[Rfam]
RNA sequence: UCCGUCGCGAGGCGGAAUCUGAAGGAAGGCGGCGGCAAAUCUCCGGCCCGAGGAACACGAACCUCAAGUGAGGCUAACGACAGCUGGAUGAGUUUGCCAAACAAAACAAAGUCCAUGCUACCGAAGGCUGUCGAGAGUAAAUGGGGCGGGUAGGUGGAGAGAAAGAUAGCGCU
Numbered sequence: 001u002c003c004g005u006c007g008c009g010a011g012g013c014g015g016a017a018u019c020u021g022a023a024g025g026a027a028g029g030c031g032g033c034g035g036c037a038a039a040u041c042u043c044c045g046g047c048c049c050g051a052g053g054a055a056c057a058c059g060a061a062c063c064u065c066a067a068g069u070g071a072g073g074c075u076a077a078c079g080a081c082a083g084c085u086g087g088a089u090g091a092g093u094u095u096g097c098c099a100a101a102c103a104a105a106a107c108a109a110a111g112u113c114c115a116u117g118c119u120a121c122c123g124a125a126g127g128c129u130g131u132c133g134a135g136a137g138u139a140a141a142u143g144g145g146g147c148g149g150g151u152a153g154g155u156g157g158a159g160a161g162a163a164a165g166a167u168a169g170c171g172c173u
Stems, first nucleotide, its partner, number of pairs: 001016006028173004036165001040160006046151005062146005073138003079132006086114004092107004
Shown here is a 173-nucleotide RNA sequence from Alicyclobacillus acidoterrestris, a member of the family "Group II catalytic intron D1-D4-3". Rfam 15.1 lists 4,274 matches to the family in 1,585 species. NCBI's taxonomy places the organism under Bacteria, Bacilli, Caryophanales, Alicyclobacillaceae, Alicyclobacillus.